RNA sequence: UGGAUCGAUGAGGACCACUGCUGGCGUAUGAGUCGUGCGCACUGAAUACGUGUUUGGAACUCUGAGGUCCAA
Numbered sequence: 001u002g003g004a005u006c007g008a009u010g011a012g013g014a015c016c017a018c019u020g021c022u023g024g025c026g027u028a029u030g031a032g033u034c035g036u037g038c039g040c041a042c043u044g045a046a047u048a049c050g051u052g053u054u055u056g057g058a059a060c061u062c063u064g065a066g067g068u069c070c071a072a
Stems, first nucleotide, its partner, number of pairs: 002070005
RNA: Small nucleolar RNA SNORD113/SNORD114 family